[Rfam]
RNA sequence: CAGGUCGAGAGGCGCUGCAACGGGCUCGGGCCCGCCACGCUCGGCCUAGGACCGUGACCCAAGGGCGCCUCCCACGA
Numbered sequence: 001c002a003g004g005u006c007g008a009g010a011g012g013c014g015c016u017g018c019a020a021c022g023g024g025c026u027c028g029g030g031c032c033c034g035c036c037a038c039g040c041u042c043g044g045c046c047u048a049g050g051a052c053c054g055u056g057a058c059c060c061a062a063g064g065g066c067g068c069c070u071c072c073c074a075c076g077a
Base pairs, nucleotide, nucleotide: 002047003046004045005044006043007042008041021034022033023032024031025030
RNA: SAH (S-adenosyl-L-homocysteine) riboswitch aptamer